[Rfam]
RNA sequence: CGUAGUGAUGCUGUAGCAGCACGUAAAUACUGGAGUGUGAUCGCUGUGCUCCUCCAGUAUUACCCUGCUGCUCUAGUAAUGCUGCG
Numbered sequence: 001c002g003u004a005g006u007g008a009u010g011c012u013g014u015a016g017c018a019g020c021a022c023g024u025a026a027a028u029a030c031u032g033g034a035g036u037g038u039g040a041u042c043g044c045u046g047u048g049c050u051c052c053u054c055c056a057g058u059a060u061u062a063c064c065c066u067g068c069u070g071c072u073c074u075a076g077u078a079a080u081g082c083u084g085c086g
Stems, first nucleotide, its partner, number of pairs: 001086006013074001015072007023064001026061010

Annotation: This 86-nucleotide sequence from Eleutherodactylus coqui belongs to the Rfam family "mir-15 microRNA precursor family". Rfam 15.1 lists 2,045 matches to the family in 649 species. Clan: mir-15 clan. The family's consensus secondary structure was predicted with RNAalifold. This family represents the related mir-15a and mir-15b sequences. In humans miR-15a and miR-16 are clustered within 0.5 kb at 13q14. This region has been shown to be deleted in more than half of B cell chronic lymphocytic leukaemias (CLL). Both miR-15a and miR-16 are deleted or down-regulated in more than two thirds of CLL cases. Rfam links the family to the GO terms miRNA-mediated post-transcriptional gene silencing and RISC complex. Lineage of the source: Eukaryota > Eumetazoa > Bilateria > Craniata > Eleutherodactylus. On this family, see Lagos-Quintana et al., Science 2001: "Identification of novel genes coding for small expressed RNAs".